Notes:
The record is a 74-nucleotide RNA sequence from Crocodylus porosus, which matches "Mammalian CPEB3 ribozyme" in Rfam. Rfam links the family to the GO term RNA nuclease activity.

RNA sequence: AUUGCAAGGUCAAGGCCAUAGCAGAAGUGCUUAUGGCGUGGCCUGUCAGAUCCAAUGAAUCUGCAACUUCUGCU
Numbered sequence: 001a002u003u004g005c006a007a008g009g010u011c012a013a014g015g016c017c018a019u020a021g022c023a024g025a026a027g028u029g030c031u032u033a034u035g036g037c038g039u040g041g042c043c044u045g046u047c048a049g050a051u052c053c054a055a056u057g058a059a060u061c062u063g064c065a066a067c068u069u070c071u072g073c074u
Stems, first nucleotide, its partner, number of pairs: 014043004020074007027039003047063005052057001
Rfam 15.1 lists 5,706 matches to the family in 197 species. About the family: The mammalian CPEB3 ribozyme is a self cleaving RNA located in the second intron of the CPEB3 gene which belongs to a family of genes regulating messenger RNA polyadenylation.